Record summary:
Rfam assigns this 92-nucleotide RNA sequence to the family "TPP riboswitch aptamer (THI element)". Its family is annotated with thiamine pyrophosphate binding in the Gene Ontology. A search with the family's covariance model found it, with a score of 66 bits. Rfam's curators write: Vitamin B(1) in its active form thiamin pyrophosphate (TPP) is an essential coenzyme that is synthesised by coupling of pyrimidine and thiazole moieties in bacteria. The family's consensus secondary structure is taken from published work.
[Rfam]
RNA sequence: CCUACGCCCAACGGGUGCCCGAAAGGGCUGAGAUCAUACCGUUAUUACCGGAUCAGGAUAAUUCCUGCGUCGGGAAGGGCCUCCCUCUUUUU
Number, nucleotide and partner (000 for none) at each position: 001c000002c000003u000004a000005c000006g080007c079008c078009c077010a000011a042012c041013g040014g039015g000016u036017g028018c027019c026020c025021g000022a000023a000024a000025g020026g019027g018028c017029u000030g000031a000032g000033a000034u000035c000036a016037u000038a000039c014040c013041g012042u011043u000044a000045u000046u000047a000048c073049c072050g071051g070052a000053u000054c067055a066056g065057g064058a000059u000060a000061a000062u000063u000064c057065c056066u055067g054068c000069g000070u051071c050072g049073g048074g000075a000076a000077g009078g008079g007080c006081c000082u000083c000084c000085c000086u000087c000088u000089u000090u000091u000092u000